[Rfam]
RNA: Fluoride riboswitch aptamer (crcB RNA motif)
Organism: Alicycliphilus denitrificans
RNA sequence: CGGCCGCCAGGAGAUGGCGUUCCUCCUGAAACCACCGCGUCGCGCGGUUGAUGACGCCUGCGGAGCC
Numbered sequence: 001c002g003g004c005c006g007c008c009a010g011g012a013g014a015u016g017g018c019g020u021u022c023c024u025c026c027u028g029a030a031a032c033c034a035c036c037g038c039g040u041c042g043c044g045c046g047g048u049u050g051a052u053g054a055c056g057c058c059u060g061c062g063g064a065g066c067c
Stems, first nucleotide, its partner, number of pairs: 010026004016058006034048004